The family of this 252-nucleotide sequence from Theobroma cacao is "Early nodulin 40".
The family's RNA type in Rfam is non-coding RNA gene.
For this family Rfam cites "Identification of conserved secondary structures and expansion segments in enod40 RNAs reveals new enod40 homologues in plants" (Gultyaev and Roussis, Nucleic Acids Res, 2007).
RNA sequence: AUGGUAUCUUUUGGGAAGAGAAGAAUCCAUCCAUGGGGUCUUCAUAAAGAAUGGGGGGAUGGAGGUUGGGAUUCCUCACCCUCCUCCAAGAAUUAAACUGUUUGCCUGUGCUUAGCCAAUGGCUCAGCUAAACAGUAAACACUGUGCGCAUGGAGGAGGAUCCUAUACAGUAGCUACCUAGCAGAGGCUUUUGGCUAAUGCACAGGCAAACCGGCAAGUCACAGAACGGCAAUGGACUCGAACAUAAGUCCU
Numbered sequence: 001a002u003g004g005u006a007u008c009u010u011u012u013g014g015g016a017a018g019a020g021a022a023g024a025a026u027c028c029a030u031c032c033a034u035g036g037g038g039u040c041u042u043c044a045u046a047a048a049g050a051a052u053g054g055g056g057g058g059a060u061g062g063a064g065g066u067u068g069g070g071a072u073u074c075c076u077c078a079c080c081c082u083c084c085u086c087c088a089a090g091a092a093u094u095a096a097a098c099u100g101u102u103u104g105c106c107u108g109u110g111c112u113u114a115g116c117c118a119a120u121g122g123c124u125c126a127g128c129u130a131a132a133c134a135g136u137a138a139a140c141a142c143u144g145u146g147c148g149c150a151u152g153g154a155g156g157a158g159g160a161u162c163c164u165a166u167a168c169a170g171u172a173g174c175u176a177c178c179u180a181g182c183a184g185a186g187g188c189u190u191u192u193g194g195c196u197a198a199u200g201c202a203c204a205g206g207c208a209a210a211c212c213g214g215c216a217a218g219u220c221a222c223a224g225a226a227c228g229g230c231a232a233u234g235g236a237c238u239c240g241a242a243c244a245u246a247a248g249u250c251c252u
Stems, first nucleotide, its partner, number of pairs: 057087003100211006119199002235250004

Its family is annotated with nodulation in the Gene Ontology. The base pairs follow the family's consensus structure, which is taken from published work.